[Rfam]
RNA sequence: AUUUCCACUGCUGCACCGAGGGCACACGCAUCUUCAGUGGGACUUGGAAUUCCUGGAGAAUUGCCUUUGUGAAGAGCUGGCAUAAUUUCUUUAAAUUUCAUCUCUUAGCUUCCCAUAAAGAUAUCAAGAAACC
Numbered sequence: 001a002u003u004u005c006c007a008c009u010g011c012u013g014c015a016c017c018g019a020g021g022g023c024a025c026a027c028g029c030a031u032c033u034u035c036a037g038u039g040g041g042a043c044u045u046g047g048a049a050u051u052c053c054u055g056g057a058g059a060a061u062u063g064c065c066u067u068u069g070u071g072a073a074g075a076g077c078u079g080g081c082a083u084a085a086u087u088u089c090u091u092u093a094a095a096u097u098u099c100a101u102c103u104c105u106u107a108g109c110u111u112c113c114c115a116u117a118a119a120g121a122u123a124u125c126a127a128g129a130a131a132c133c
Stems, first nucleotide, its partner, number of pairs: 006080001010077003016071001017069008026061001039054004086131006096121003